[Rfam]
RNA sequence: AAGUGUGUGAUGAGGAAGCAAUUUUGUGGACUAGAGUUUCUGACUGGGGAUUAGAACCCCCAAUUGUUUGAAGACAAACCCUUGGCUGUCUGAGCACACUC
Numbered sequence: 001a002a003g004u005g006u007g008u009g010a011u012g013a014g015g016a017a018g019c020a021a022u023u024u025u026g027u028g029g030a031c032u033a034g035a036g037u038u039u040c041u042g043a044c045u046g047g048g049g050a051u052u053a054g055a056a057c058c059c060c061c062a063a064u065u066g067u068u069u070g071a072a073g074a075c076a077a078a079c080c081c082u083u084g085g086c087u088g089u090c091u092g093a094g095c096a097c098a099c100u101c
Stems, first nucleotide, its partner, number of pairs: 002100007037073004044066001045062005
A member of the RNA family "Small nucleolar RNA Z157/R69/R10" from Capsicum baccatum, 101 nucleotides long. Pairs were carried over by alignment from the consensus structure, which was predicted with PFOLD. Rfam links the family to the GO terms RNA processing and nucleolus. The family's RNA type in Rfam is C/D-box small nucleolar RNA.